[Rfam]
RNA: mir-46/mir-47/mir-281 microRNA precursor family
RNA sequence: GGGCACGCGCUAUCAAGAGAGCUAUCCGUCGACAGUAUAAGUAGCCACACUGUCAUGGAGUUGCUCUCUUUAUUGGCGUGCUC
Number, nucleotide and partner (000 for none) at each position: 001g000002g000003g000004c000005a000006c000007g000008c000009g000010c000011u000012a000013u000014c000015a070016a069017g068018a067019g000020a065021g064022c063023u000024a000025u059026c058027c057028g056029u000030c000031g054032a053033c052034a000035g050036u049037a000038u000039a000040a000041g000042u000043a000044g000045c000046c000047a000048c000049a036050c035051u000052g033053u032054c031055a000056u028057g027058g026059a025060g000061u000062u000063g022064c021065u020066c000067u018068c017069u016070u015071u000072a000073u000074u000075g000076g000077c000078g000079u000080g000081c000082u000083c000